RNA sequence: GCUUCCGAGGAGCGUUGCAACCGUCAGCUCAUGACGGCCAGGCUCGGAACCUUUUCAAAGGCAACGGCGCUCACCCGCA
Numbered sequence: 001g002c003u004u005c006c007g008a009g010g011a012g013c014g015u016u017g018c019a020a021c022c023g024u025c026a027g028c029u030c031a032u033g034a035c036g037g038c039c040a041g042g043c044u045c046g047g048a049a050c051c052u053u054u055u056c057a058a059a060g061g062c063a064a065c066g067g068c069g070c071u072c073a074c075c076c077g078c079a
Base pairs, nucleotide, nucleotide: 003049004048005047006046007045008044021037022036023035024034025033026032